[Rfam]
RNA sequence: AAGCUGCCCGCAUGUUCGCUGAUUCGUCAGCACAUGCCAGCAGCCAGGGUUCCAGGCUGCGCGGAAUUCACUCCGUAUCACCCACCAGUCCGCCCAGCAUCGUCCUGCGGACGAGCGUCCUCGCGACGCCGAUGC
Numbered sequence: 001a002a003g004c005u006g007c008c009c010g011c012a013u014g015u016u017c018g019c020u021g022a023u024u025c026g027u028c029a030g031c032a033c034a035u036g037c038c039a040g041c042a043g044c045c046a047g048g049g050u051u052c053c054a055g056g057c058u059g060c061g062c063g064g065a066a067u068u069c070a071c072u073c074c075g076u077a078u079c080a081c082c083c084a085c086c087a088g089u090c091c092g093c094c095c096a097g098c099a100u101c102g103u104c105c106u107g108c109g110g111a112c113g114a115g116c117g118u119c120c121u122c123g124c125g126a127c128g129c130c131g132a133u134g135c
Stems, first nucleotide, its partner, number of pairs: 011036005018031005040060006049079001061076005107135003115129005
RNA: radC RNA
Organism: Bordetella ansorpii